A member of the RNA family "U1 spliceosomal RNA" from Pan troglodytes, 164 nucleotides long. Its family is annotated with pre-mRNA 5'-splice site binding, U1 snRNP and mRNA 5'-splice site recognition in the Gene Ontology. The match comes from Rfam's covariance-model search (107 bits).
RNA sequence: AAACUUCUCUGCCAGGGGAGAUACCAUGAUCACAAAGGUGGCUUUCUCAGGGAAAGGCUGAUUUAUUGCACUCCAGAUGUGCUGACCCCUGAGAUUUCCCCAAAUGUGGGAAACUCAGCUGCAUAAUUUGUGGAAGUGAAGGACUGUGUUUGUGCUUUCAUGUG
Number, nucleotide and partner (000 for none) at each position: 001a000002a000003a000004c000005u000006u000007c000008u000009c000010u000011g000012c000013c121014a120015g119016g048017g047018g046019a045020g044021a043022u000023a000024c041025c040026a039027u038028g000029a000030u000031c000032a000033c000034a000035a000036a000037g000038g027039u026040g025041g024042c000043u021044u020045u019046c018047u017048c016049a090050g089051g088052g087053a000054a000055a000056g083057g082058c081059u000060g000061a078062u077063u076064u075065a000066u000067u000068g000069c000070a000071c000072u000073c000074c000075a064076g063077a062078u061079g000080u000081g058082c057083u056084g000085a000086c000087c052088c051089c050090u049091g000092a000093g116094a115095u113096u112097u111098c000099c109100c108101c000102a000103a000104a000105u000106g000107u000108g100109g099110g000111a097112a096113a095114c000115u094116c093117a000118g000119c015120u014121g013122c000123a000124u000125a000126a000127u000128u000129u000130g000131u000132g000133g000134a000135a000136g000137u000138g163139a000140a161141g000142g159143a158144c000145u000146g155147u154148g153149u000150u000151u000152g000153u148154g147155c146156u000157u000158u143159c142160a000161u140162g000163u138164g000